[Rfam]
RNA sequence: AAGGAGUUCAUUGAGACCCUCCGCCCCCUUUUUGUGGGCGGCAGGGCGCAUCAACUCUCCGAGA
Numbered sequence: 001a002a003g004g005a006g007u008u009c010a011u012u013g014a015g016a017c018c019c020u021c022c023g024c025c026c027c028c029u030u031u032u033u034g035u036g037g038g039c040g041g042c043a044g045g046g047c048g049c050a051u052c053a054a055c056u057c058u059c060c061g062a063g064a
Stems, first nucleotide, its partner, number of pairs: 003060004017046004022040005

Trypanosomatid snoRNA TB11Cs4H2: a 64-nucleotide sequence from Leptomonas pyrrhocoris. A search with the family's covariance model found it, with a score of 60 bits. The source organism's lineage runs through Eukaryota, Euglenozoa, Trypanosomatidae, Leishmaniinae and Leptomonas. Gene Ontology terms of the family: RNA processing and nucleolus. The literature on the family includes a 2005 paper in RNA by Liang et al., "A genome-wide analysis of C/D and H/ACA-like small nucleolar RNAs in Trypanosoma brucei reveals a trypanosome-specific pattern of rRNA modification".